[Rfam]
RNA: MIR828 microRNA precursor family
Organism: Beta vulgaris
RNA sequence: UUAAUGUUUCUUGCUCAAAUGAGUAUUCCAAUCACAGUAGCAAAGAUGGCUAAGCAGAAAAUACAGAAACAAUGGUUUAAACUAAUUUGUUCUUGUACAUCAACAAAAGUUUAUUUUUGAUAUUCCUUGCUUAGUGAAAAAUGCUGAUGAUUGAUUGAGAUGCUCAUUUGAGUAAGCAGUAUUAU
Numbered sequence: 001u002u003a004a005u006g007u008u009u010c011u012u013g014c015u016c017a018a019a020u021g022a023g024u025a026u027u028c029c030a031a032u033c034a035c036a037g038u039a040g041c042a043a044a045g046a047u048g049g050c051u052a053a054g055c056a057g058a059a060a061a062u063a064c065a066g067a068a069a070c071a072a073u074g075g076u077u078u079a080a081a082c083u084a085a086u087u088u089g090u091u092c093u094u095g096u097a098c099a100u101c102a103a104c105a106a107a108a109g110u111u112u113a114u115u116u117u118u119g120a121u122a123u124u125c126c127u128u129g130c131u132u133a134g135u136g137a138a139a140a141a142u143g144c145u146g147a148u149g150a151u152u153g154a155u156u157g158a159g160a161u162g163c164u165c166a167u168u169u170g171a172g173u174a175a176g177c178a179g180u181a182u183u184a185u
Stems, first nucleotide, its partner, number of pairs: 004182005010176018029157006